[Rfam]
RNA: Bacterial small subunit ribosomal RNA, nucleotides 536 to 851
RNA sequence: GGUUUAAAGGGUAAGUAGACGGUAAAUUAAACUCUAAACGAGUACUUUUUUACUAGAGUUAUAUGAGAGAAGGAAGAAUUUCUGGAGUAGAGAUAAAAUUUGAUGAUACCAGGAGGACUGUCAACGGCGAAGGCGUCCUUCUAUGUAAUAACUGACGUUGAGAGACGAAGGCUUGGGUAGCAAACAGGAUUAGAUACCCUAAUAGUCCAAGCAGACAAUGAUGAAUGUCAUACAUUAGAUAUAAUUUUAAUGUAUAAACGAAAGUGUAAGCAUUCCACCUCAAGAGUACUAUGGCAACAUAUAAACUGAAAUCAUU
Numbered sequence: 001g002g003u004u005u006a007a008a009g010g011g012u013a014a015g016u017a018g019a020c021g022g023u024a025a026a027u028u029a030a031a032c033u034c035u036a037a038a039c040g041a042g043u044a045c046u047u048u049u050u051u052a053c054u055a056g057a058g059u060u061a062u063a064u065g066a067g068a069g070a071a072g073g074a075a076g077a078a079u080u081u082c083u084g085g086a087g088u089a090g091a092g093a094u095a096a097a098a099u100u101u102g103a104u105g106a107u108a109c110c111a112g113g114a115g116g117a118c119u120g121u122c123a124a125c126g127g128c129g130a131a132g133g134c135g136u137c138c139u140u141c142u143a144u145g146u147a148a149u150a151a152c153u154g155a156c157g158u159u160g161a162g163a164g165a166c167g168a169a170g171g172c173u174u175g176g177g178u179a180g181c182a183a184a185c186a187g188g189a190u191u192a193g194a195u196a197c198c199c200u201a202a203u204a205g206u207c208c209a210a211g212c213a214g215a216c217a218a219u220g221a222u223g224a225a226u227g228u229c230a231u232a233c234a235u236u237a238g239a240u241a242u243a244a245u246u247u248u249a250a251u252g253u254a255u256a257a258a259c260g261a262a263a264g265u266g267u268a269a270g271c272a273u274u275c276c277a278c279c280u281c282a283a284g285a286g287u288a289c290u291a292u293g294g295c296a297a298c299a300u301a302u303a304a305a306c307u308g309a310a311a312u313c314a315u316u
Base pairs, nucleotide, nucleotide: 001279002278003277009276011166012165016160018159019158020157022053023052024051025050026049030046032042033041034040057153058152059151062147063146064145065144068142069141070140071139072138073137074136075119076118079115080114081113082112083111084110085109090101091100092099127134128133171212172211173210174209175208176207180206181205186200187199188198223275224274225273226272227271228270231254232253233252234251235250236249237248238247239246258265259264281308282307290301291300292299293298